A member of the RNA family "ASdes TB sRNA" from Gordonia bronchialis, 67 nucleotides long. Pairs were carried over by alignment from the consensus structure, which is taken from published work. A reference for the family is Arnvig and Young (2009), "Identification of small RNAs in Mycobacterium tuberculosis", Mol Microbiol. It is one of the family's seed sequences. Lineage of the source: Bacteria > Bacillati > Mycobacteriales > Gordonia > Gordonia bronchialis.

RNA sequence: GGGCCGUCGGAUCCACCCCGCGGGUGACCACGAGGUAGUCGCGCAUGACGAUGCCGUGCCGGUUCUC
Numbered sequence: 001g002g003g004c005c006g007u008c009g010g011a012u013c014c015a016c017c018c019c020g021c022g023g024g025u026g027a028c029c030a031c032g033a034g035g036u037a038g039u040c041g042c043g044c045a046u047g048a049c050g051a052u053g054c055c056g057u058g059c060c061g062g063u064u065c066u067c
Base pairs, nucleotide, nucleotide: 004062005061006060008058009057010029012027014026015025016024017023034055035054036053037052039051040050041049
Notes:
By type it is a small RNA.